[Rfam]
A member of the RNA family "DUF805b RNA" from Terrimonas sp., 35 nucleotides long. By type it is a cis-regulatory element. Its Rfam clan is "DUF805 clan". Pairs were carried over by alignment from the consensus structure, which is taken from published work.
RNA sequence: GAAGGGGUAACCGAAAACCUUUAACAGAGUAGGAA
Numbered sequence: 001g002a003a004g005g006g007g008u009a010a011c012c013g014a015a016a017a018c019c020u021u022u023a024a025c026a027g028a029g030u031a032g033g034a035a
Base pairs, nucleotide, nucleotide: 002021003020004019005018011033012032